[Rfam]
RNA sequence: UUGCCUCAAAUUAAUGAGUAAGGAUAAUAUAGGAUUUGGGUGAUACCUUAUCCACAUAUACUUCCGGUAUAUGAUAAUCACCAAAUAUUUGGCGGGGUAUAGGUCGGCCUUGGUAAGUUCCUUCCUACAUUCGAAGGUUCUAACCGAGAUUGCUAACCUCCCGU
Numbered sequence: 001u002u003g004c005c006u007c008a009a010a011u012u013a014a015u016g017a018g019u020a021a022g023g024a025u026a027a028u029a030u031a032g033g034a035u036u037u038g039g040g041u042g043a044u045a046c047c048u049u050a051u052c053c054a055c056a057u058a059u060a061c062u063u064c065c066g067g068u069a070u071a072u073g074a075u076a077a078u079c080a081c082c083a084a085a086u087a088u089u090u091g092g093c094g095g096g097g098u099a100u101a102g103g104u105c106g107g108c109c110u111u112g113g114u115a116a117g118u119u120c121c122u123u124c125c126u127a128c129a130u131u132c133g134a135a136g137g138u139u140c141u142a143a144c145c146g147a148g149a150u151u152g153c154u155a156a157c158c159u160c161c162c163g164u
Stems, first nucleotide, its partner, number of pairs: 004023003008019001032053004038047002056078002094164001096162002101159004106154002109148002112145003116141001120137005
RNA: U12 minor spliceosomal RNA